[Rfam]
RNA sequence: ACCUACCAGAAAAUACUUUAAGGCAUUCGUUUAACUAUAAUAUUAAUAAAAAGGUCGACAUUAUGCUAAGUUUCGAAAGAGGCGGUGUUAAUAUGGUAGUGCAUCACAGUAAUGUGCUUGCGGGAG
Numbered sequence: 001a002c003c004u005a006c007c008a009g010a011a012a013a014u015a016c017u018u019u020a021a022g023g024c025a026u027u028c029g030u031u032u033a034a035c036u037a038u039a040a041u042a043u044u045a046a047u048a049a050a051a052a053g054g055u056c057g058a059c060a061u062u063a064u065g066c067u068a069a070g071u072u073u074c075g076a077a078a079g080a081g082g083c084g085g086u087g088u089u090a091a092u093a094u095g096g097u098a099g100u101g102c103a104u105c106a107c108a109g110u111a112a113u114g115u116g117c118u119u120g121c122g123g124g125a126g
Stems, first nucleotide, its partner, number of pairs: 003099006013088004022067005070083004101121003105116004

Rfam assigns this 126-nucleotide sequence to the family "lysM-TM7 RNA". It is one of the family's seed sequences.